[Rfam]
RNA: MIR1435 microRNA precursor family
Organism: Miscanthus lutarioriparius
RNA sequence: UAGUUUUGUCCUAAGUCAAUCUUCUCUAACUCGAAGAGUUUAUAGGAAAAUAUAUUAACAUCUAUAUCUAUACAAGAUAAAUGCACUAUCAAUACCUAGUUCAUGGUGCAUUUAAUGAACCUAAUUUGAUGUUGUAAAUAUUGGUGCAUUUUCCUAUAAACUUGGUUACAGUUAGAGAAAUUUGACUUAGGACAAAACUGA
Numbered sequence: 001u002a003g004u005u006u007u008g009u010c011c012u013a014a015g016u017c018a019a020u021c022u023u024c025u026c027u028a029a030c031u032c033g034a035a036g037a038g039u040u041u042a043u044a045g046g047a048a049a050a051u052a053u054a055u056u057a058a059c060a061u062c063u064a065u066a067u068c069u070a071u072a073c074a075a076g077a078u079a080a081a082u083g084c085a086c087u088a089u090c091a092a093u094a095c096c097u098a099g100u101u102c103a104u105g106g107u108g109c110a111u112u113u114a115a116u117g118a119a120c121c122u123a124a125u126u127u128g129a130u131g132u133u134g135u136a137a138a139u140a141u142u143g144g145u146g147c148a149u150u151u152u153c154c155u156a157u158a159a160a161c162u163u164g165g166u167u168a169c170a171g172u173u174a175g176a177g178a179a180a181u182u183u184g185a186c187u188u189a190g191g192a193c194a195a196a197a198c199u200g201a
Base pairs, nucleotide, nucleotide: 005196006195007194008193009192011190012189013188014187015186016185017184018183019182022179023178024177025176026175031170034167035166043156044155045154046153047152048151049150050149053146054145055144057142058141060139061138063136064135065134066133073128074127075126076125